This 185-nucleotide RNA sequence from Paenibacillus beijingensis belongs to the Rfam family "c-di-AMP riboswitch aptamer (ydaO/yuaA leader)".
RNA sequence: UGCGAUUCGCCGCUGAAUUUCCAUUAGGAAAGCGGGGGAACCAACGAUGAAAGGCUUCUGACAUGUUGCCGUUUCAUCCGGGGUGAAUCCUGAAGGAACAACGUAUCGGUCGUUGGUUCUUCGGGUAGGGCGACUCUCACCGUCCGAAUCCGGCAGCUAACCUCGCAAGCGUAGAGAAUGCCGUU
Numbered sequence: 001u002g003c004g005a006u007u008c009g010c011c012g013c014u015g016a017a018u019u020u021c022c023a024u025u026a027g028g029a030a031a032g033c034g035g036g037g038g039a040a041c042c043a044a045c046g047a048u049g050a051a052a053g054g055c056u057u058c059u060g061a062c063a064u065g066u067u068g069c070c071g072u073u074u075c076a077u078c079c080g081g082g083g084u085g086a087a088u089c090c091u092g093a094a095g096g097a098a099c100a101a102c103g104u105a106u107c108g109g110u111c112g113u114u115g116g117u118u119c120u121u122c123g124g125g126u127a128g129g130g131c132g133a134c135u136c137u138c139a140c141c142g143u144c145c146g147a148a149u150c151c152g153g154c155a156g157c158u159a160a161c162c163u164c165g166c167a168a169g170c171g172u173a174g175a176g177a178a179u180g181c182c183g184u185u
Base pairs, nucleotide, nucleotide: 011171012170013169014168018031019030020029032166033165034164035163036162037161042080081151082150083149089125090124091123092122093121094120095119096118097117128145129144130143131142
The match comes from Rfam's covariance-model search (85 bits).